[Rfam]
RNA sequence: CAUGCGAAGCAGCGUCAGACGGGGAAAUGGUAAGUCUUACAUUUUACCAGUUCAUCGUCUGACGUUUAGGUUCCCAUG
Numbered sequence: 001c002a003u004g005c006g007a008a009g010c011a012g013c014g015u016c017a018g019a020c021g022g023g024g025a026a027a028u029g030g031u032a033a034g035u036c037u038u039a040c041a042u043u044u045u046a047c048c049a050g051u052u053c054a055u056c057g058u059c060u061g062a063c064g065u066u067u068a069g070g071u072u073c074c075c076a077u078g
Stems, first nucleotide, its partner, number of pairs: 001078004006073003010069001012065011024053003028049005
RNA: mir-6301 microRNA precursor family